Shown here is a 77-nucleotide RNA from Todus mexicanus, a member of the family "Small nucleolar RNA SNORD47". Rfam links the family to the GO terms nucleolus and RNA processing. The base pairs follow the family's consensus structure, which was predicted with ILM. The organism belongs to Todus, within Eukaryota. For this family Rfam cites "Purified box C/D snoRNPs are able to reproduce site-specific 2'-O-methylation of target RNA in vitro" (Galardi et al., Mol Cell Biol, 2002). Rfam classes the family as a C/D-box small nucleolar RNA. The match comes from Rfam's covariance-model search (54 bits).
Nucleotides: 077
Base pairs, nucleotide, nucleotide: 001077002076003075004074
Number, partner (000 for none) and nucleotide at each position: 001077a002076g003075c004074c005000g006000c007000u008000g009000a010000u011000g012000a013000a014000a015000u016000u017000u018000g019000a020000u021000u022000c023000u024000g025000c026000c027000a028000a029000a030000u031000g032000a033000g034000u035000u036000g037000c038000u039000g040000u041000g042000a043000u044000a045000u046000u047000a048000a049000c050000c051000a052000g053000u054000u055000c056000c057000g058000u059000u060000c061000c062000a063000c064000u065000u066000u067000u068000c069000c070000c071000u072000g073000a074004g075003g076002u077001u